[Rfam]
RNA: Makes More Granules Regulator RNA (mmgR)
RNA sequence: CGGCAAUGCCCUCCUUGGGCGUUUCCUCCCUAGACUUGGGCCGCCGGCAAUCCGCUGCGCGGCCUUUUUUUUUGCGGC
Numbered sequence: 001c002g003g004c005a006a007u008g009c010c011c012u013c014c015u016u017g018g019g020c021g022u023u024u025c026c027u028c029c030c031u032a033g034a035c036u037u038g039g040g041c042c043g044c045c046g047g048c049a050a051u052c053c054g055c056u057g058c059g060c061g062g063c064c065u066u067u068u069u070u071u072u073u074g075c076g077g078c
Stems, first nucleotide, its partner, number of pairs: 008020004040063005045057004